[Rfam]
RNA: Bacterial RNase P class A
RNA sequence: GCGGAAGGCUGGAUGACCGCGUGUUCGGCGAAGUCCCUGCAAGGGGAAACCGCCGGAUGCGAGGAAAGUCCGGACUCCAUGAAGCAAGGGUGCCGGGUAACGCCCGGCGGGGGCAACCCCAGGGAAAGCGCCACAGAGAACGAGACCGCCCCGCAUGCGGGGUAAGGGUGAAACGGUGGAGUAAGAGCCCACCGCGGACCGGGCAACCGGGACGGCACGGCAAGCCCCACCCGGAGCAAUGCCGAAUAGGGGCCUCGCGCGGGGCAGGUCCAGGGCCUCGGUCCGGGAUACCGCCGCAGGGAUGUUUCAGCCCGAGAGGUCCGGGUUGGCAGCUAGAUCCCGCCGGUAACGGCGGGGCCAGAGGAAUGGUCAUCCAAGGGGGCAACCCCCGGACAGAAUCCGGCUUACAGGCCUUCCGCGCAA
Numbered sequence: 001g002c003g004g005a006a007g008g009c010u011g012g013a014u015g016a017c018c019g020c021g022u023g024u025u026c027g028g029c030g031a032a033g034u035c036c037c038u039g040c041a042a043g044g045g046g047a048a049a050c051c052g053c054c055g056g057a058u059g060c061g062a063g064g065a066a067a068g069u070c071c072g073g074a075c076u077c078c079a080u081g082a083a084g085c086a087a088g089g090g091u092g093c094c095g096g097g098u099a100a101c102g103c104c105c106g107g108c109g110g111g112g113g114c115a116a117c118c119c120c121a122g123g124g125a126a127a128g129c130g131c132c133a134c135a136g137a138g139a140a141c142g143a144g145a146c147c148g149c150c151c152c153g154c155a156u157g158c159g160g161g162g163u164a165a166g167g168g169u170g171a172a173a174c175g176g177u178g179g180a181g182u183a184a185g186a187g188c189c190c191a192c193c194g195c196g197g198a199c200c201g202g203g204c205a206a207c208c209g210g211g212a213c214g215g216c217a218c219g220g221c222a223a224g225c226c227c228c229a230c231c232c233g234g235a236g237c238a239a240u241g242c243c244g245a246a247u248a249g250g251g252g253c254c255u256c257g258c259g260c261g262g263g264g265c266a267g268g269u270c271c272a273g274g275g276c277c278u279c280g281g282u283c284c285g286g287g288a289u290a291c292c293g294c295c296g297c298a299g300g301g302a303u304g305u306u307u308c309a310g311c312c313c314g315a316g317a318g319g320u321c322c323g324g325g326u327u328g329g330c331a332g333c334u335a336g337a338u339c340c341c342g343c344c345g346g347u348a349a350c351g352g353c354g355g356g357g358c359c360a361g362a363g364g365a366a367u368g369g370u371c372a373u374c375c376a377a378g379g380g381g382g383c384a385a386c387c388c389c390c391g392g393a394c395a396g397a398a399u400c401c402g403g404c405u406u407a408c409a410g411g412c413c414u415u416c417c418g419c420g421c422a423a
Base pairs, nucleotide, nucleotide: 001419002418003417004416005415006414007413008412009411010410011408012374013373014372015371016370017369018368020061021060022059023058024057025056026055027054028053029052030051066406067405068404070403071402072401073400074399075236076235077234078233084307086305088232089231090230091229092228093107094106095105096104097103108122109120110119111118112117123227124226128225129224130221131220132219146167147166148163149162150161151160152159153158175193176192177191178190179189194216195214196213199210200209201208202207240331241330242329243328250322251321252320253319254318255317299313300312301311303309338357339356340355341354342353343352344351345350